[Rfam]
RNA sequence: UACGCGGAUAGAGGCGCGGGACUCAUGCGUACCCGGAACAAUGGCCAGGCAGCCGUUUCGGGGAGAGGGGGAACCGCCGAAGGAGCAGCCGCCUGCCUGGGCGGCGUAUCCUGGGCCGUGGGAGAAUAUCCUGCGGACUGUCACAAAAUUUGUGGAGCGCUAUCCAGACG
Numbered sequence: 001u002a003c004g005c006g007g008a009u010a011g012a013g014g015c016g017c018g019g020g021a022c023u024c025a026u027g028c029g030u031a032c033c034c035g036g037a038a039c040a041a042u043g044g045c046c047a048g049g050c051a052g053c054c055g056u057u058u059c060g061g062g063g064a065g066a067g068g069g070g071g072a073a074c075c076g077c078c079g080a081a082g083g084a085g086c087a088g089c090c091g092c093c094u095g096c097c098u099g100g101g102c103g104g105c106g107u108a109u110c111c112u113g114g115g116c117c118g119u120g121g122g123a124g125a126a127u128a129u130c131c132u133g134c135g136g137a138c139u140g141u142c143a144c145a146a147a148a149u150u151u152g153u154g155g156a157g158c159g160c161u162a163u164c165c166a167g168a169c170g
Stems, first nucleotide, its partner, number of pairs: 006165006016077004022071003032062008081112004088105005113139002116136008141155006
Dot-bracket structure: .....((((((....((((..(((.......((((((((...............))))))))......)))..))))...((((...(((((........)))))...))))((.((((((((.....)))))))).)).((((((...))))))....)))))).....
Lysine riboswitch aptamer: a 170-nucleotide RNA from Ruthenibacterium lactatiformans.
The match comes from Rfam's covariance-model search (92 bits).
Riboswitches are metabolite binding domains within certain messenger RNAs that serve as precision sensors for their corresponding targets. Allosteric rearrangement of mRNA structure is mediated by ligand binding, and this results in modulation of gene expression.
Gene Ontology term of the family: lysine biosynthetic process.
The organism belongs to Ruthenibacterium, within Bacteria.
The base pairs follow the family's consensus structure, which is taken from published work.